[Rfam]
RNA sequence: CGAUGAACAUGAUGAAGGAGAAAAAGAUUGGAUGAUGACCCAUGAUCUCAAAAACAUCCUCUAUUUCGCUACGUUCUUUCUGAUUCAUCC
Dot-bracket structure: ...((((............................................................................))))...
Numbered sequence: 001c002g003a004u005g006a007a008c009a010u011g012a013u014g015a016a017g018g019a020g021a022a023a024a025a026g027a028u029u030g031g032a033u034g035a036u037g038a039c040c041c042a043u044g045a046u047c048u049c050a051a052a053a054a055c056a057u058c059c060u061c062u063a064u065u066u067c068g069c070u071a072c073g074u075u076c077u078u079u080c081u082g083a084u085u086c087a088u089c090c
Stems, first nucleotide, its partner, number of pairs: 004087004
This 90-nucleotide sequence from Cucumis melo belongs to the Rfam family "Small nucleolar RNA R32/R81/Z41". It is annotated as a C/D-box small nucleolar RNA. Gene Ontology terms of the family: RNA processing and nucleolus. The source organism's lineage runs through Eukaryota, Tracheophyta, Spermatophyta, Gunneridae and Cucumis.